[Rfam]
RNA: Bacterial small subunit ribosomal RNA, nucleotides 1 to 511
Organism: Acetobacter sp. DmW_043
RNA sequence: GAACCUGAGAGUUUGAUCCUGGCUCAGAGCGAACGCUGGCGGCAUGCUUAACACAUGCAAGUCGCACGAAGGUUUCGGCCUUAGUGGCGGACGGGUGAGUAACGCGUAGGAAUCUAUCCACGGGUGGGGGAUAACUUCGGGAAACUGAAGCUAAUACCGCAUGAUACCUGAGGGUCAAAGGCGCAAGUCGCCUGUGGAGGAGCCUGCGUUUGAUUAGCUUGUUGGUGGGGUAAUGGCCUACCAAGGCGAUGAUCGAUAGCUGGUUUGAGAGGAUGAUCAGCCACACUGGGACUGAGACACGGCCCAGACUCCUGCGGGAGGCAGCAGUGGGGAAUAUUGGACAAUGGGGGCAACCCUGAUCCAGCAAUGCCGCGUGUGUGAAGAAGGUUUUCGGAUUGUAAAGCACUUUCGGCGGGGACGAUGAUGACGGUACCCGCAGAAGAAGCCCCGGCUAACUUCGUGCCAGCAGCCGCGGUAAUACGAAGGGGGCUAGCGUUGCUCGGAAUGACUG
Number, nucleotide and partner (000 for none) at each position: 001g000002a000003a000004c000005c000006u000007g000008a000009g025010a024011g023012u022013u021014u000015g000016a000017u000018c000019c000020u000021g013022g012023c011024u010025c009026a000027g501028a500029g499030c498031g000032a497033a496034c495035g494036c493037u492038g000039g373040c372041g371042g370043c369044a368045u366046g365047c331048u000049u000050a000051a000052c329053a328054c327055a000056u326057g325058c324059a000060a000061g088062u087063c086064g000065c000066a085067c084068g000069a082070a081071g080072g079073u078074u000075u000076c000077g000078g073079c072080c071081u070082u069083a000084g067085u066086g063087g062088c061089g000090g000091a000092c000093g000094g000095g284096u283097g282098a000099g000100u000101a000102a000103c000104g209105c208106g207107u206108a205109g204110g203111a000112a000113u201114c200115u000116a000117u000118c197119c196120a195121c194122g193123g192124g191125u000126g160127g000128g158129g157130g000131a000132u000133a000134a000135c150136u149137u148138c147139g146140g145141g000142a000143a000144a000145c140146u139147g138148a137149a136150g135151c000152u000153a000154a000155u000156a000157c129158c128159g000160c126161a000162u000163g000164a000165u000166a175167c174168c173169u000170g000171a000172g000173g168174g167175u166176c000177a000178a000179a000180g189181g188182c187183g000184c000185a000186a000187g182188u181189c180190g000191c124192c123193u122194g121195u120196g119197g118198a000199g000200g114201a113202g000203c110204c109205u108206g107207c106208g105209u104210u256211u255212g254213a000214u000215u000216a000217g247218c246219u245220u000221g000222u244223u243224g242225g241226u240227g239228g238229g237230g000231u000232a000233a000234u000235g000236g000237c229238c228239u227240a226241c225242c224243a223244a222245g219246g218247c217248g000249a000250u000251g000252a000253u000254c212255g211256a210257u000258a000259g281260c280261u279262g278263g274264u273265u272266u271267g000268a000269g000270a000271g266272g265273a264274u263275g000276a000277u000278c262279a261280g260281c259282c097283a096284c095285a000286c307287u306288g305289g304290g303291a000292c000293u000294g000295a000296g000297a000298c000299a000300c000301g000302g000303c290304c289305c288306a287307g286308a000309c320310u319311c318312c317313u000314g000315c000316g000317g312318g311319a310320g309321g000322c000323a000324g058325c057326a056327g054328u053329g052330g000331g047332g000333a000334a000335u000336a000337u363338u000339g362340g361341a360342c000343a000344a000345u358346g357347g356348g355349g354350g000351c000352a000353a000354c349355c348356c347357u346358g345359a000360u341361c340362c339363a337364g000365c046366a045367a000368u044369g043370c042371c041372g040373c039374g000375u000376g406377u405378g404379u403380g000381a000382a000383g000384a000385a000386g397387g396388u395389u394390u000391u000392c000393g000394g389395a388396u387397u386398g000399u000400a000401a000402a000403g379404c378405a377406c376407u000408u000409u000410c442411g000412g437413c436414g435415g434416g433417g000418a000419c000420g428421a000422u000423g000424a000425u000426g000427a000428c420429g000430g000431u000432a000433c416434c415435c414436g413437c412438a000439g000440a000441a000442g410443a000444a000445g490446c489447c488448c487449c486450g000451g000452c000453u000454a000455a000456c485457u484458u483459c482460g481461u000462g000463c000464c000465a000466g473467c472468a000469g000470c000471c000472g467473c466474g000475g000476u000477a000478a000479u000480a000481c460482g459483a458484a457485g456486g449487g448488g447489g446490c445491u000492a037493g036494c035495g034496u033497u032498g030499c029500u028501c027502g000503g000504a000505a000506u000507g000508a000509c000510u000511g000